[Rfam]
RNA: Plastid-psbN 5UTR RNA
RNA sequence: UGCGACGUCCAUUAAAGGAGUAGUUCUCCAUCCAAGAGCUACUUUGCCAUAUUCCAAAUUC
Numbered sequence: 001u002g003c004g005a006c007g008u009c010c011a012u013u014a015a016a017g018g019a020g021u022a023g024u025u026c027u028c029c030a031u032c033c034a035a036g037a038g039c040u041a042c043u044u045u046g047c048c049a050u051a052u053u054c055c056a057a058a059u060u061c
Stems, first nucleotide, its partner, number of pairs: 017045011